[Rfam]
RNA sequence: UGGUAAUGUCUCCUUUACCAGUAUCAAUGGGGACACUCGGCUGCGCGGUGGUGUUCUGAGAGACAGAAUGCUUAGACGCUUGUCGUCAAGCGCGGGGUGUGAGGAUGGGUUAAAUGCCCA
Numbered sequence: 001u002g003g004u005a006a007u008g009u010c011u012c013c014u015u016u017a018c019c020a021g022u023a024u025c026a027a028u029g030g031g032g033a034c035a036c037u038c039g040g041c042u043g044c045g046c047g048g049u050g051g052u053g054u055u056c057u058g059a060g061a062g063a064c065a066g067a068a069u070g071c072u073u074a075g076a077c078g079c080u081u082g083u084c085g086u087c088a089a090g091c092g093c094g095g096g097g098u099g100u101g102a103g104g105a106u107g108g109g110u111u112a113a114a115u116g117c118c119c120a
Stems, first nucleotide, its partner, number of pairs: 001020004007035007036103004040098003044094004050072003054068005075087004106120005
Overview: epsC RNA: a 120-nucleotide sequence from Domibacillus iocasae. Taxonomically the source falls in Domibacillus (Bacteria, Bacillati, Caryophanales, Bacillaceae).